[Rfam]
RNA sequence: UGGAAGAAUCUGUUAAGCUCAGGAGGGAUAGCGCCAUGGAUGAAUUAACAAUCGAUCAUACAUGCCUCUUUCUUCUUAGGUUUUGAUGAUCCCCCUAUAGCGCUAUCCAUCCUGAGUUUCAUCGGUUCUUCUU
Number, nucleotide and partner (000 for none) at each position: 001u000002g000003g000004a000005a000006g000007a000008a000009u000010c124011u000012g000013u000014u000015a000016a118017g117018c116019u115020c114021a113022g112023g111024a110025g000026g108027g107028a106029u105030a104031g103032c102033g101034c100035c000036a000037u000038g000039g000040a000041u000042g000043a000044a000045u000046u000047a000048a000049c000050a000051a000052u000053c000054g000055a000056u000057c000058a000059u000060a000061c000062a000063u000064g000065c000066c000067u000068c000069u000070u000071u000072c000073u000074u000075c000076u000077u000078a000079g000080g000081u000082u000083u000084u000085g000086a000087u000088g000089a000090u000091c000092c000093c000094c000095c000096u000097a000098u000099a000100g034101c033102g032103c031104u030105a029106u028107c027108c026109a000110u024111c023112c022113u021114g020115a019116g018117u017118u016119u000120c000121a000122u000123c000124g010125g000126u000127u000128c000129u000130u000131c000132u000133u000
RNA: MIR390 microRNA precursor family